Shown here is a 146-nucleotide sequence from Streptococcus agalactiae, a member of the family "FMN riboswitch aptamer (RFN element)".
The base pairs follow the family's consensus structure, which is taken from published work.
Rfam's curators write: The RFN element is a highly conserved domain that is found frequently in the 5'-untranslated regions of prokaryotic mRNAs that encode for flavin mononucleotide (FMN) biosynthesis and transport proteins.

RNA sequence: AGGUGUCUUCAGGGCAGGGUGUAAUUCCCGACCGGCGGUAAUCGCUUCCAACUUAUUUGUCAGUUGUGAAGCAUCAGUCCGCGAGCGAAAGCUGAUGUGGUGAGAUUCCACAACCGACAGUAAAGUCUGGAUGGGAGAAGACAAAG
Numbered sequence: 001a002g003g004u005g006u007c008u009u010c011a012g013g014g015c016a017g018g019g020u021g022u023a024a025u026u027c028c029c030g031a032c033c034g035g036c037g038g039u040a041a042u043c044g045c046u047u048c049c050a051a052c053u054u055a056u057u058u059g060u061c062a063g064u065u066g067u068g069a070a071g072c073a074u075c076a077g078u079c080c081g082c083g084a085g086c087g088a089a090a091g092c093u094g095a096u097g098u099g100g101u102g103a104g105a106u107u108c109c110a111c112a113a114c115c116g117a118c119a120g121u122a123a124a125g126u127c128u129g130g131a132u133g134g135g136a137g138a139a140g141a142c143a144a145a146g
Stems, first nucleotide, its partner, number of pairs: 004143007017029003031126002033116002035082004077114002085092002096112005118129003